Shown here is a 120-nucleotide RNA sequence from Haloactinopolyspora alba, a member of the family "SAM riboswitch aptamer (S box leader)".
RNA sequence: UACUCAUCCAGAGGGGCAGAGGGACCGGCCCGACGAAGCCCCGGCAACCGCCCGCCGGCGUCCUCAUCUCACGCGACGGCGGUGCCAAUUCCGGCCCGCGAUCCGCGGGAGAGAUGAGGA
Numbered sequence: 001u002a003c004u005c006a007u008c009c010a011g012a013g014g015g016g017c018a019g020a021g022g023g024a025c026c027g028g029c030c031c032g033a034c035g036a037a038g039c040c041c042c043g044g045c046a047a048c049c050g051c052c053c054g055c056c057g058g059c060g061u062c063c064u065c066a067u068c069u070c071a072c073g074c075g076a077c078g079g080c081g082g083u084g085c086c087a088a089u090u091c092c093g094g095c096c097c098g099c100g101a102u103c104c105g106c107g108g109g110a111g112a113g114a115u116g117a118g119g120a
Stems, first nucleotide, its partner, number of pairs: 001120001003118006013042005021031003025094004043086004048082005090112001095109006
The base pairs follow the family's consensus structure, which is taken from published work. The organism belongs to Haloactinopolyspora, within Bacteria. The literature on the family includes a 2010 paper in J Mol Biol by Montange et al., "Discrimination between closely related cellular metabolites by the SAM-I riboswitch".